[Rfam]
RNA sequence: UGGUGAUAUCUCCUUACCGUUAUCAAAGGAGGUACUCGGUCAUGCUGUGGGUUUUGUACCUUAGACGUUAGUCGUCGAUAGUGUGAUGUGAGGAUGGGUUAGAUGCCCA
Numbered sequence: 001u002g003g004u005g006a007u008a009u010c011u012c013c014u015u016a017c018c019g020u021u022a023u024c025a026a027a028g029g030a031g032g033u034a035c036u037c038g039g040u041c042a043u044g045c046u047g048u049g050g051g052u053u054u055u056g057u058a059c060c061u062u063a064g065a066c067g068u069u070a071g072u073c074g075u076c077g078a079u080a081g082u083g084u085g086a087u088g089u090g091a092g093g094a095u096g097g098g099u100u101a102g103a104u105g106c107c108c109a
Base pairs, nucleotide, nucleotide: 001019002018003017004016007034008033009032010031011030012029013028035092036091037090038089039087040086041085042084043083044082045081046080049061050060051059052058064076065075066074067073095109096108097107098106099105
epsC RNA: a 109-nucleotide sequence from Bacillus sp. OK048. Lineage of the source: Bacteria > Bacillati > Bacilli > Caryophanales > Bacillus.